A member of the RNA family "ZMP/ZTP riboswitch aptamer (pfl RNA motif)" from Butyrivibrio sp. CB08, 85 nucleotides long.
Gene Ontology terms of the family: regulation of purine nucleotide biosynthetic process and one-carbon metabolic process.
A search with the family's covariance model found it, with a score of 56 bits.
The family's consensus secondary structure is taken from published work.
NCBI's taxonomy places the organism under Bacteria, Bacillati, Lachnospirales, Lachnospiraceae, Butyrivibrio.
[Rfam]
RNA sequence: ACGUGUCUGUACAACUGGCGGAUAAGUGGGUAACCACAUGGGAGUAUAGAUUAAUAAUGAACAGUCGACCGCCUGGGCAACCGCU
Numbered sequence: 001a002c003g004u005g006u007c008u009g010u011a012c013a014a015c016u017g018g019c020g021g022a023u024a025a026g027u028g029g030g031u032a033a034c035c036a037c038a039u040g041g042g043a044g045u046a047u048a049g050a051u052u053a054a055u056a057a058u059g060a061a062c063a064g065u066c067g068a069c070c071g072c073c074u075g076g077g078c079a080a081c082c083g084c085u
Stems, first nucleotide, its partner, number of pairs: 005051008015041002017073005026037004064078003